Nucleotides: 115
Base pairs, nucleotide, nucleotide: 001077002076003075004074009037011036012035013034014033015032016031020029021028038064039063040062043060044059045058047055048054080104081103082102083101084100085099086098088097089096090095
Number, partner (000 for none) and nucleotide at each position: 001077g002076g003075u004074c005000a006000u007000g008000a009037g010000u011036g012035c013034c014033a015032g016031c017000g018000a019000c020029a021028g022000c023000c024000c025000c026000g027000g028021c029020u030000u031016g032015c033014u034013g035012g036011c037009c038064g039063g040062c041000a042000a043060c044059c045058c046000u047055c048054u049000u050000u051000u052000g053000c054048g055047g056000c057000g058045g059044g060043g061000u062040g063039c064038c065000c066000c067000g068000g069000g070000u071000g072000a073000g074004g075003a076002c077001c078000u079000g080104g081103c082102c083101u084100g085099c086098u087000g088097g089096u090095c091000a092000a093000u094000u095090g096089a097088c098086g099085g100084u101083g102082g103081g104080c105000a106000a107000g108000c109000g110000c111000a112000u113000a114000g115000a